Shown here is a 108-nucleotide RNA sequence from Treponema denticola, a member of the family "TD-2 RNA".
The family has 36 seed sequences and 310 matches in Rfam 15.1.
The source organism's lineage runs through Bacteria, Pseudomonadati, Treponematales, Treponema and Treponema denticola.
RNA sequence: GUGUGCCGAAAAGCACACACAUAUAAUAAUGCGAAGUUUUGUACUCAUAAGUGCAAAACUCGGCAGAUAAACAGUGAAGCUGAAUUUCUGCUGAACUGUUUAUCAUAC
Numbered sequence: 001g002u003g004u005g006c007c008g009a010a011a012a013g014c015a016c017a018c019a020c021a022u023a024u025a026a027u028a029a030u031g032c033g034a035a036g037u038u039u040u041g042u043a044c045u046c047a048u049a050a051g052u053g054c055a056a057a058a059c060u061c062g063g064c065a066g067a068u069a070a071a072c073a074g075u076g077a078a079g080c081u082g083a084a085u086u087u088c089u090g091c092u093g094a095a096c097u098g099u100u101u102a103u104c105a106u107a108c
Stems, first nucleotide, its partner, number of pairs: 001018006032062003036059010066104010078092002